[Rfam]
RNA sequence: CCUCCUUUUCUUGGCAGGCCCGGGCGGUGCGGUGCCCGGCUCUGUAAUGCUCCGGAGGCAGAGGAAGGGGAUCCCAUCCCCCCGGUGUUCUGUCUUCGGUGCCAGCGGCUUCCCCGUCUGCUGGUUCUAUCCUCAAGCACCGGGACACGC
Numbered sequence: 001c002c003u004c005c006u007u008u009u010c011u012u013g014g015c016a017g018g019c020c021c022g023g024g025c026g027g028u029g030c031g032g033u034g035c036c037c038g039g040c041u042c043u044g045u046a047a048u049g050c051u052c053c054g055g056a057g058g059c060a061g062a063g064g065a066a067g068g069g070g071a072u073c074c075c076a077u078c079c080c081c082c083c084g085g086u087g088u089u090c091u092g093u094c095u096u097c098g099g100u101g102c103c104a105g106c107g108g109c110u111u112c113c114c115c116g117u118c119u120g121c122u123g124g125u126u127c128u129a130u131c132c133u134c135a136a137g138c139a140c141c142g143g144g145a146c147a148c149g150c
Stems, first nucleotide, its partner, number of pairs: 001058005015044004020039001022037004083142006102124007
This 150-nucleotide RNA from Gopherus evgoodei belongs to the Rfam family "Small nucleolar RNA SNORA57". The base pairs follow the family's consensus structure, which was predicted with PFOLD.